[Rfam]
A member of the RNA family "Rhizobiales sRNA Atu_C8" from Rhizobium subbaraonis, 118 nucleotides long.
The source organism's lineage runs through Bacteria, Pseudomonadati, Hyphomicrobiales, Rhizobiaceae and Rhizobium.
Rfam classes the family as a small RNA.
RNA sequence: GAAUAUCGCGAAGAUUCUUGUGGUGGGAAGGCGCAUGGGCAAGGUGGUGUGACCACCGGGCGAAAGCACCCAUGCGCGGUAAGCAGGCUCCGAAAGGGGCCUUUUUUUAUGCCCACGA
Numbered sequence: 001g002a003a004u005a006u007c008g009c010g011a012a013g014a015u016u017c018u019u020g021u022g023g024u025g026g027g028a029a030g031g032c033g034c035a036u037g038g039g040c041a042a043g044g045u046g047g048u049g050u051g052a053c054c055a056c057c058g059g060g061c062g063a064a065a066g067c068a069c070c071c072a073u074g075c076g077c078g079g080u081a082a083g084c085a086g087g088c089u090c091c092g093a094a095a096g097g098g099g100c101c102u103u104u105u106u107u108u109a110u111g112c113c114c115a116c117g118a
Stems, first nucleotide, its partner, number of pairs: 007025001009023001026114002031077009043057005060067002083103001085102007
Dot-bracket structure: ......(.(.............).)((...(((((((((...(((((.....)))))..((....)).))))))))).....(.(((((((....)))))))).........))....
A search with the family's covariance model found it, with a score of 108 bits.